[Rfam]
Rfam assigns this 92-nucleotide RNA sequence from Ovis aries to the family "mir-965 microRNA precursor family". It scores 43 bits against the family's covariance model. Its family is annotated with RISC complex and miRNA-mediated post-transcriptional gene silencing in the Gene Ontology. A reference for the family is Huang et al. (2012), "The regulation of silkworm fibroin L chain production by miRNA-965 and miRNA-1926 in insect cells", Bioorg Khim.
RNA sequence: CAGCAAAGUGAAUCAGCUAUAUGCGUAUGUGUAUAUAUAUAUAUAUAUAUAUAUAUAUAUACACAUACGCAUAUAGCUGAUUCACUUUGCUG
Numbered sequence: 001c002a003g004c005a006a007a008g009u010g011a012a013u014c015a016g017c018u019a020u021a022u023g024c025g026u027a028u029g030u031g032u033a034u035a036u037a038u039a040u041a042u043a044u045a046u047a048u049a050u051a052u053a054u055a056u057a058u059a060u061a062c063a064c065a066u067a068c069g070c071a072u073a074u075a076g077c078u079g080a081u082u083c084a085c086u087u088u089g090c091u092g
Stems, first nucleotide, its partner, number of pairs: 003090005009084003013080002017076005024069018